[Rfam]
RNA sequence: GGAAUAUAAGAACCCGUCUCUUAAUUUUUAACUAAAAAAACUAAAAGCCGAUUAUUAAAGCUCUUAUUUAAGAAUCGGUUCUUAGCCUUUUUAAUUAAAAAUUAAGAGACGAGUUCUUAUAUUCC
Numbered sequence: 001g002g003a004a005u006a007u008a009a010g011a012a013c014c015c016g017u018c019u020c021u022u023a024a025u026u027u028u029u030a031a032c033u034a035a036a037a038a039a040a041c042u043a044a045a046a047g048c049c050g051a052u053u054a055u056u057a058a059a060g061c062u063c064u065u066a067u068u069u070a071a072g073a074a075u076c077g078g079u080u081c082u083u084a085g086c087c088u089u090u091u092u093a094a095u096u097a098a099a100a101a102u103u104a105a106g107a108g109a110c111g112a113g114u115u116c117u118u119a120u121a122u123u124c125c
Base pairs, nucleotide, nucleotide: 001125002124003123004122005121006120007119008118009117010116011115012114013113015111016110017109018108019107020106021105022104023103024102025101026100027099028098029097030096031095033093034092035091036090037089038088041085042084043083044082046080047079

MIR9563 microRNA precursor family: a 125-nucleotide RNA sequence from Brassica carinata.
Rfam 15.1 lists 5,832 matches to the family in 9 species.
A search with the family's covariance model found it, with a score of 114 bits.